[Rfam]
RNA sequence: UUGCAGCAGGGAUAGGAACGAUAUCUUUUUUAUGACUUUGGAAUAAAAAAAUUAAGUGGAUAGCCCGGCCACAA
Numbered sequence: 001u002u003g004c005a006g007c008a009g010g011g012a013u014a015g016g017a018a019c020g021a022u023a024u025c026u027u028u029u030u031u032a033u034g035a036c037u038u039u040g041g042a043a044u045a046a047a048a049a050a051a052u053u054a055a056g057u058g059g060a061u062a063g064c065c066c067g068g069c070c071a072c073a074a
Stems, first nucleotide, its partner, number of pairs: 009066003013062002018057002023052002026049001029047005

Description
The record is a 74-nucleotide RNA sequence from Arenibacter sp. NBRC 103722, which matches "Flavo-1 RNA" in Rfam. The family's consensus secondary structure is taken from published work. The family has 201 seed sequences and 7,497 matches in Rfam 15.1. A search with the family's covariance model found it, with a score of 45 bits.